[Rfam]
RNA sequence: GAAAAUUCAGAUGAAAACUCUGAACGCCGAAAGCCUCAGGUUUCUCCGUCAAUGUCAGUCAGACGGAGGUUAGGCGGUCCCUCAGUCGAACCCUAGUCUCUAGGGGUAGGCGAUGGGGAAAGGUGUCAAUAUUCACCUCCCGCCUGUAGGCGCUAACUUAAGGAAUGACGCAUAAGAUGCGGUGGUCGGACUGUUGGAUGUGUCCGUCCUCCGGCGAAAGCCGGAGGGGAGUUCAAACUACGGUGCGAGCGAACCCACCAGGAUCGAGUGCCAAGAAAUAGUUUCUUAAGUUGUCUACGGGCGACCGUACCGCAAUCCGACACAGGUAGGCUACCAGAAUAUGGUCAGGCGCG
Number, nucleotide and partner (000 for none) at each position: 001g000002a000003a000004a000005a000006u024007u023008c022009a021010g020011a019012u000013g000014a000015a000016a000017a000018c000019u011020c010021u009022g008023a007024a006025c351026g350027c349028c348029g000030a000031a000032a000033g331034c330035c329036u328037c000038a000039g311040g310041u000042u000043u000044c068045u067046c066047c065048g064049u063050c000051a000052a000053u061054g060055u000056c000057a000058g000059u000060c054061a053062g000063a049064c048065g047066g046067a045068g044069g000070u000071u000072a000073g000074g000075c307076g306077g305078u304079c000080c116081c115082u000083c000084a000085g111086u110087c109088g000089a107090a000091c105092c104093c103094u102095a101096g000097u000098c000099u000100c000101u095102a094103g093104g092105g091106g000107u089108a000109g087110g086111c085112g000113a000114u000115g081116g080117g000118g000119a000120a000121a138122g137123g136124u135125g134126u000127c000128a000129a000130u000131a000132u000133u000134c125135a124136c123137c122138u121139c000140c000141c303142g302143c301144c300145u299146g298147u297148a296149g295150g294151c293152g000153c000154u000155a000156a000157c290158u289159u000160a000161a286162g285163g284164a283165a282166u281167g000168a000169c000170g271171c270172a269173u268174a000175a000176g265177a264178u263179g000180c000181g259182g258183u257184g256185g255186u000187c206188g205189g204190a203191c202192u000193g000194u000195u000196g000197g000198a000199u000200g000201u000202g191203u190204c189205c188206g187207u000208c228209c227210u000211c000212c223213g222214g221215c220216g000217a000218a000219a000220g215221c214222c213223g212224g000225a000226g000227g209228g208229g000230a000231g250232u249233u248234c247235a000236a000237a000238c000239u000240a000241c000242g000243g000244u000245g000246c000247g234248a233249g232250c231251g000252a000253a000254c000255c185256c184257a183258c182259c181260a000261g000262g000263a178264u177265c176266g000267a000268g173269u172270g171271c170272c000273a000274a000275g000276a000277a000278a000279u000280a000281g166282u165283u164284u163285c162286u161287u000288a000289a158290g157291u000292u000293g151294u150295c149296u148297a147298c146299g145300g144301g143302c142303g141304a078305c077306c076307g075308u000309a000310c040311c039312g000313c000314a000315a000316u000317c326318c325319g000320a000321c000322a000323c000324a000325g318326g317327u000328a036329g035330g034331c033332u000333a345334c344335c343336a342337g000338a000339a000340u000341a000342u336343g335344g334345u333346c000347a000348g028349g027350c026351g025352c000353g000
RNA: Bacterial large subunit ribosomal RNA, nucleotides 1364 to 1716
Organism: uncultured bacterium